[Rfam]
Source information:
The family of this 101-nucleotide RNA sequence from Psychromicrobium lacuslunae is "ZMP/ZTP riboswitch aptamer (pfl RNA motif)". Gene Ontology terms of the family: one-carbon metabolic process and regulation of purine nucleotide biosynthetic process.

RNA sequence: UGGCCAAGUCGCAACUGGCGUAAGGUGGUUCACCACCGGGGAGCGGCCGAGUCAACAGCGACUCAUACGCAGACCAUGGAUCGAACGCCUGGGACCGAGGU
Numbered sequence: 001u002g003g004c005c006a007a008g009u010c011g012c013a014a015c016u017g018g019c020g021u022a023a024g025g026u027g028g029u030u031c032a033c034c035a036c037c038g039g040g041g042a043g044c045g046g047c048c049g050a051g052u053c054a055a056c057a058g059c060g061a062c063u064c065a066u067a068c069g070c071a072g073a074c075c076a077u078g079g080a081u082c083g084a085a086c087g088c089c090u091g092g093g094a095c096c097g098a099g100g101u
Stems, first nucleotide, its partner, number of pairs: 003052002008047005015040002017089005025036004078096002081093002